[Rfam]
RNA sequence: AGCCAGGGGAAUUCCUGGCAGAGUGAUUUUUAAAUCUAAUGACUGAAUCACAUUGCCAGGGAUUUCCAAUGGCU
Dot-bracket structure: (.(((...(.(((((((((((.(((((((...............))))))).)))))))))))...)..))).)
Numbered sequence: 001a002g003c004c005a006g007g008g009g010a011a012u013u014c015c016u017g018g019c020a021g022a023g024u025g026a027u028u029u030u031u032a033a034a035u036c037u038a039a040u041g042a043c044u045g046a047a048u049c050a051c052a053u054u055g056c057c058a059g060g061g062a063u064u065u066c067c068a069a070u071g072g073c074u
Stems, first nucleotide, its partner, number of pairs: 001074001003072003009067001011063011023051007